The record is a 59-nucleotide sequence from Sedimentibacter saalensis, which matches "Fluoride riboswitch aptamer (crcB RNA motif)" in Rfam. A search with the family's covariance model found it, with a score of 56 bits. Lineage of the source: Bacteria > Bacillati > Bacillota > Tissierellia > Sedimentibacter.
RNA sequence: AUGUUAAAUGGCGAUGGAGUUCGCCCUUAAAUGCAUAAGCUGAUGACUCCUACAGAUGU
Numbered sequence: 001a002u003g004u005u006a007a008a009u010g011g012c013g014a015u016g017g018a019g020u021u022c023g024c025c026c027u028u029a030a031a032u033g034c035a036u037a038a039g040c041u042g043a044u045g046a047c048u049c050c051u052a053c054a055g056a057u058g059u
Stems, first nucleotide, its partner, number of pairs: 010025004016050006033040002